[Rfam]
RNA sequence: AUAUAGCAUGACGGGUGUUCGAGGAUUGCUUCGGCAUGACUCGUUCUGAGAAUUACCGUUGAACUUGAUCUGGAUAAUACCAGCGAUAAGGACAUGCUUCUUCUCUCUU
Dot-bracket structure: .....(((((((((..(..((((................))))..).........))))....((((..((((......))))...))))..)))))............
Numbered sequence: 001a002u003a004u005a006g007c008a009u010g011a012c013g014g015g016u017g018u019u020c021g022a023g024g025a026u027u028g029c030u031u032c033g034g035c036a037u038g039a040c041u042c043g044u045u046c047u048g049a050g051a052a053u054u055a056c057c058g059u060u061g062a063a064c065u066u067g068a069u070c071u072g073g074a075u076a077a078u079a080c081c082a083g084c085g086a087u088a089a090g091g092a093c094a095u096g097c098u099u100c101u102u103c104u105c106u107c108u109u
Stems, first nucleotide, its partner, number of pairs: 006097005011059004017046001020043004064090004070083004
The record is a 109-nucleotide sequence, which matches "TPP riboswitch aptamer (THI element)" in Rfam. It scores 57 bits against the family's covariance model. Rfam 15.1 lists 16,130 matches to the family in 8,693 species. Gene Ontology term of the family: thiamine pyrophosphate binding.